[Rfam]
RNA: Cyano-1 RNA
RNA sequence: AAUUUGGUGAGGAGAAAAGCUCACGUGGUGGAAACAAGGACACACUCACGUUGAACUUUUUGAA
Numbered sequence: 001a002a003u004u005u006g007g008u009g010a011g012g013a014g015a016a017a018a019g020c021u022c023a024c025g026u027g028g029u030g031g032a033a034a035c036a037a038g039g040a041c042a043c044a045c046u047c048a049c050g051u052u053g054a055a056c057u058u059u060u061u062g063a064a
Stems, first nucleotide, its partner, number of pairs: 015060005021054002025049003028045003